The family of this 76-nucleotide sequence from Balaenoptera musculus is "Small nucleolar RNA U2-30". The family's consensus secondary structure is taken from published work. The literature on the family includes a 2004 paper in Curr Biol by Tycowski et al., "Guide RNAs with 5' Caps and Novel Box C/D snoRNA-like Domains for Modification of snRNAs in Metazoa".
RNA sequence: GAGCAACGAUGAAAAGGUUUUGCUACUGCCCUUUAUAGCUAUAACUAUGAACAUUUCUAUGCUUGAUCUGAGCUCA
Numbered sequence: 001g002a003g004c005a006a007c008g009a010u011g012a013a014a015a016g017g018u019u020u021u022g023c024u025a026c027u028g029c030c031c032u033u034u035a036u037a038g039c040u041a042u043a044a045c046u047a048u049g050a051a052c053a054u055u056u057c058u059a060u061g062c063u064u065g066a067u068c069u070g071a072g073c074u075c076a
Stems, first nucleotide, its partner, number of pairs: 001075004013034005019028001